nhaA-II RNA: a 91-nucleotide RNA sequence.

[Rfam]
RNA sequence: AUCAGGCGCGGGUGGUCAUUCCGCCCCGCCGGGCCGGCGCUUCCGCACGGGGCGAAUCCGGUCGGGCGUCCGUCGAUAACCGGGCGCCGCG
Numbered sequence: 001a002u003c004a005g006g007c008g009c010g011g012g013u014g015g016u017c018a019u020u021c022c023g024c025c026c027c028g029c030c031g032g033g034c035c036g037g038c039g040c041u042u043c044c045g046c047a048c049g050g051g052g053c054g055a056a057u058c059c060g061g062u063c064g065g066g067c068g069u070c071c072g073u074c075g076a077u078a079a080c081c082g083g084g085c086g087c088c089g090c091g
Base pairs, nucleotide, nucleotide: 005030006029007028008027010026011025012024013023014022015021032063033062034061035060036059037058038054039053040052041051042050043049065088066087067086068085069084070083